RNA sequence: CCACAUCCUUAGGGGCGACCGUGCAAUCGGUCUGAGAUGCCUGCUAAGUGUUUCGUUAACGCGAAACGCGCUGCAGCGGUCCCUUAGAACCUGAUCCGGUUGAUACCGGCGUAGGAAAAGGAAUGGUACCGAAA
Dot-bracket structure: .....(((((((((.((((((......)))))......((...................................)))..)))).....((((..((((......))))..))))..)))))............
This 134-nucleotide sequence from Pelagicoccus albus belongs to the Rfam family "TPP riboswitch aptamer (THI element)". Lineage of the source: Bacteria > Opitutia > Puniceicoccales > Pelagicoccaceae > Pelagicoccus. Pairs were carried over by alignment from the consensus structure, which is taken from published work. A search with the family's covariance model found it, with a score of 70 bits.